This 352-nucleotide RNA from Chloropsis hardwickii belongs to the Rfam family "7SK RNA". For this family Rfam cites "Transcription: surprising role for an elusive small nuclear RNA" (Blencowe, Curr Biol, 2002). Rfam classes the family as a non-coding RNA gene. Taxonomically the source falls in Chloropsis (Eukaryota, Sauria, Theropoda, Irenidae). The family's consensus secondary structure is taken from published work. The family has 45 seed sequences and 49,373 matches in Rfam 15.1. Rfam describes the family as follows. 7SK was discovered as an abundant small nuclear RNA in the mid-70s but a possible function has only recently been suggested. Two independent studies have found that 7SK RNA binds the CDK9/cyclin T complex (known as elongation factor P-TEFb).
RNA sequence: GGAUGUGAGGGCAGUCUGGCUGCAACCUCUGUCACCCCACUGAUGACCAGGUUGAUUGAGCUGACCUGGCUGGUCCAGUGGGUGUCCACUUCCUCCUCAAUGCUCCAUGUGCAUCCCUACCAAAGCUGCACACUGCUUGAACAGGGUGAUCUUCCCUAUGGAGAUGGUAUUGUUCAUUGGUCAAGGGUAUACAGUAGUCCCACCCCUGCUAGAAACAACCUUCAAACAAGCUCAAGGUUUAUGGCUCUUUACACUGUAACUGCAGUUUCUGUAAAGAUUUUGCAGUGACCUGCCAGAGAUAUAAAAAAAAUAUAUUCUGAGUGGUCAGGACAUAGAGGUUGUGCCAUGUUCA
Numbered sequence: 001g002g003a004u005g006u007g008a009g010g011g012c013a014g015u016c017u018g019g020c021u022g023c024a025a026c027c028u029c030u031g032u033c034a035c036c037c038c039a040c041u042g043a044u045g046a047c048c049a050g051g052u053u054g055a056u057u058g059a060g061c062u063g064a065c066c067u068g069g070c071u072g073g074u075c076c077a078g079u080g081g082g083u084g085u086c087c088a089c090u091u092c093c094u095c096c097u098c099a100a101u102g103c104u105c106c107a108u109g110u111g112c113a114u115c116c117c118u119a120c121c122a123a124a125g126c127u128g129c130a131c132a133c134u135g136c137u138u139g140a141a142c143a144g145g146g147u148g149a150u151c152u153u154c155c156c157u158a159u160g161g162a163g164a165u166g167g168u169a170u171u172g173u174u175c176a177u178u179g180g181u182c183a184a185g186g187g188u189a190u191a192c193a194g195u196a197g198u199c200c201c202a203c204c205c206c207u208g209c210u211a212g213a214a215a216c217a218a219c220c221u222u223c224a225a226a227c228a229a230g231c232u233c234a235a236g237g238u239u240u241a242u243g244g245c246u247c248u249u250u251a252c253a254c255u256g257u258a259a260c261u262g263c264a265g266u267u268u269c270u271g272u273a274a275a276g277a278u279u280u281u282g283c284a285g286u287g288a289c290c291u292g293c294c295a296g297a298g299a300u301a302u303a304a305a306a307a308a309a310a311u312a313u314a315u316u317c318u319g320a321g322u323g324g325u326c327a328g329g330a331c332a333u334a335g336a337g338g339u340u341g342u343g344c345c346a347u348g349u350u351c352a
Base pairs, nucleotide, nucleotide: 001106002105003104006099007098008097009096010095011094013091014090018089025085026084028082029081030080031079032078035073036072037069038068039067042066044064047060114167115166117163118162121139122138123137125136126135144155145154146153197289198288199287206285207284208283209282212281213280220276221275222274226272227271228270230268318352319351320350321347322346323345324344325343